Overview:
The family of this 87-nucleotide sequence from Gallus gallus is "mir-22 microRNA precursor family". NCBI's taxonomy places the organism under Eukaryota, Saurischia, Theropoda, Neognathae, Gallus. Pairs were carried over by alignment from the consensus structure, which was predicted with RNAalifold. The literature on the family includes a 2001 paper in Science by Lagos-Quintana et al., "Identification of novel genes coding for small expressed RNAs".

RNA sequence: GGCUGCCCGGCAGCAGUUCUUCAGUGGCAAGCUUUAUGUCCUUCUCUAGUAGCUAAAGCUGCCAGUUGAAGAACUGUUGAAUGUAGC
Numbered sequence: 001g002g003c004u005g006c007c008c009g010g011c012a013g014c015a016g017u018u019c020u021u022c023a024g025u026g027g028c029a030a031g032c033u034u035u036a037u038g039u040c041c042u043u044c045u046c047u048a049g050u051a052g053c054u055a056a057a058g059c060u061g062c063c064a065g066u067u068g069a070a071g072a073a074c075u076g077u078u079g080a081a082u083g084u085a086g087c
Stems, first nucleotide, its partner, number of pairs: 005084002011079002017073006026063003030060007